[Rfam]
RNA sequence: GUCGAGAGCUCUCCCCGCUUGCCCAGUCUUAUCAGUUCGAGCGCCAACUCAACCAACUGUUCGGGCGGUUCAGGGAGAAUCCGGCGUGGGGACCCAAGCUACUUCUCGGUCGCAAGACCUGGAUCCACACGGUCGCCCACGCCGGGCUCUCGGCACCCA
Numbered sequence: 001g002u003c004g005a006g007a008g009c010u011c012u013c014c015c016c017g018c019u020u021g022c023c024c025a026g027u028c029u030u031a032u033c034a035g036u037u038c039g040a041g042c043g044c045c046a047a048c049u050c051a052a053c054c055a056a057c058u059g060u061u062c063g064g065g066c067g068g069u070u071c072a073g074g075g076a077g078a079a080u081c082c083g084g085c086g087u088g089g090g091g092a093c094c095c096a097a098g099c100u101a102c103u104u105c106u107c108g109g110u111c112g113c114a115a116g117a118c119c120u121g122g123a124u125c126c127a128c129a130c131g132g133u134c135g136c137c138c139a140c141g142c143c144g145g146g147c148u149c150u151c152g153g154c155a156c157c158c159a
Stems, first nucleotide, its partner, number of pairs: 001154008009077005014068002017066005024059004035053002039050003081145010091134004108119004
RNA: Xanthomonadaceae sRNA sX15
Organism: Stenotrophomonas maltophilia